This 29-nucleotide RNA sequence from Oryctolagus cuniculus belongs to the Rfam family "Iron response element II". Rfam classes the family as a cis-regulatory element. The literature on the family includes a 1989 paper in Proc Natl Acad Sci U S A by Koeller et al., "A cytosolic protein binds to structural elements within the iron regulatory region of the transferrin receptor mRNA". The source organism's lineage runs through Eukaryota, Craniata, Vertebrata, Mammalia and Oryctolagus. IRE, TFRC, SLC40A1, SDHB, SLC11A2, CDC42BPA, ACO2, ALAS2_H.SAPIENS, CDC14A, EPAS1, ALAS2, qoxD, Hao1, NDUFS1, transferrin, Aconitate. It is one of the family's seed sequences. The base pairs follow the family's consensus structure, which is taken from published work.
[Rfam]
Nucleotides: 029
Base pairs, nucleotide, nucleotide: 001029002028003027004026005025006024008023009022010021011020012019013017
Number, partner (000 for none) and nucleotide at each position: 001029g002028a003027u004026u005025a006024u007000c008023g009022g010021a011020a012019g013017c014000a015000g016000u017013g018000c019012c020011u021010u022009c023008c024006a025005u026004a027003a028002u029001c